mir-2807 microRNA precursor family: a 74-nucleotide sequence from Bombyx mori. It scores 54 bits against the family's covariance model.
RNA sequence: CCGUGUCAAAUUUGUAUGGAGUUGGAAUAUUUGCUGCUAGAGGCGCUGUUCCAACUCCAUACAAAUUUUGUUUU
Numbered sequence: 001c002c003g004u005g006u007c008a009a010a011u012u013u014g015u016a017u018g019g020a021g022u023u024g025g026a027a028u029a030u031u032u033g034c035u036g037c038u039a040g041a042g043g044c045g046c047u048g049u050u051c052c053a054a055c056u057c058c059a060u061a062c063a064a065a066u067u068u069u070g071u072u073u074u
Base pairs, nucleotide, nucleotide: 008068009067010066011065012064013063014062015061016060018058020056021055022054023053024052025051026050027049028048029047034042035041
Description:
The base pairs follow the family's consensus structure, which was predicted with RNAalifold. Lineage of the source: Eukaryota > Metazoa > Ecdysozoa > Pterygota > Bombyx.